[Rfam]
RNA sequence: CCCUUAAAGAAGAAGCGCCCGCUUCUCACCUGACCGACAAACGUUGGCUGGUUAUUAUCAAUAUAUUGAAUGUGUAGAGCAUAUAUUCUGUAUACGUGUGGGCGCUUCUCUGUUUCAGAGGGUGUCUGCACGUUUUUUUCGUU
Numbered sequence: 001c002c003c004u005u006a007a008a009g010a011a012g013a014a015g016c017g018c019c020c021g022c023u024u025c026u027c028a029c030c031u032g033a034c035c036g037a038c039a040a041a042c043g044u045u046g047g048c049u050g051g052u053u054a055u056u057a058u059c060a061a062u063a064u065a066u067u068g069a070a071u072g073u074g075u076a077g078a079g080c081a082u083a084u085a086u087u088c089u090g091u092a093u094a095c096g097u098g099u100g101g102g103c104g105c106u107u108c109u110c111u112g113u114u115u116c117a118g119a120g121g122g123u124g125u126c127u128g129c130a131c132g133u134u135u136u137u138u139u140c141g142u143u
Base pairs, nucleotide, nucleotide: 011026012025013024014023015022016021028052029051030050034047035046036045037044038043097130098129099128100127101126102125103124104123105122106121

Shown here is a 143-nucleotide RNA sequence from Marinococcus luteus, a member of the family "Ribosomal protein L20 leader". The base pairs follow the family's consensus structure, which was predicted with CMfinder. This family is a putative r-protein leader autoregulatory structure found in B. subtilis and other low-GC Gram-positive bacteria. NCBI's taxonomy places the organism under Bacteria, Bacillati, Bacillota, Bacillaceae, Marinococcus.